[Rfam]
RNA sequence: CCGGACGCCCAUCGGGGGGGUCUGGCCCGUCGAACGAUGAAUGACAUCGCUGACGGAAAUAGAAACUUGUACCCAUGUUGCUUCACAAGGAGGAUGUGGCUAUGAGAA
Numbered sequence: 001c002c003g004g005a006c007g008c009c010c011a012u013c014g015g016g017g018g019g020g021u022c023u024g025g026c027c028c029g030u031c032g033a034a035c036g037a038u039g040a041a042u043g044a045c046a047u048c049g050c051u052g053a054c055g056g057a058a059a060u061a062g063a064a065a066c067u068u069g070u071a072c073c074c075a076u077g078u079u080g081c082u083u084c085a086c087a088a089g090g091a092g093g094a095u096g097u098g099g100c101u102a103u104g105a106g107a108a
Base pairs, nucleotide, nucleotide: 001025002024003023004022005021006020008019009018066106067105068104069103070102071101073099074098075097076096077095078094079093081092082091083090
Shown here is a 108-nucleotide RNA sequence from Brucella intermedia, a member of the family "Repression of heat shock gene expression (ROSE) element". By type it is an RNA thermoregulator. The source organism's lineage runs through Bacteria, Pseudomonadota, Alphaproteobacteria, Brucella and Brucella intermedia. The family has 13 seed sequences and 381 matches in Rfam 15.1. The family's consensus secondary structure is taken from published work. From the family's description: This family represents a 5' UTR cis-regulatory element found in heat shock mRNAs and is known as the ROSE (repression of heat shock gene expression) element. The ROSE element is a negative regulator of heat shock gene expression.